[Rfam]
RNA sequence: GGGUGUCCGUGCCGCAUGCUCGCGGCCGGGCAGGUUUUCGUGAUGGUCGGGCCGCCUCA
Numbered sequence: 001g002g003g004u005g006u007c008c009g010u011g012c013c014g015c016a017u018g019c020u021c022g023c024g025g026c027c028g029g030g031c032a033g034g035u036u037u038u039c040g041u042g043a044u045g046g047u048c049g050g051g052c053c054g055c056c057u058c059a
Stems, first nucleotide, its partner, number of pairs: 005031005011026005041059003045056003

The record is a 59-nucleotide sequence from Thauera linaloolentis, which matches "nhaA-I RNA" in Rfam. A search with the family's covariance model found it, with a score of 48 bits. It is annotated as a riboswitch. From the family's description: Acidobacteria, Alphaproteobacteria, Betaproteobacteria and Gammaproteobacteria, Verrucomicrobia, cand. division NC10. NCBI's taxonomy places the organism under Bacteria, Pseudomonadati, Betaproteobacteria, Thauera, Thauera linaloolentis.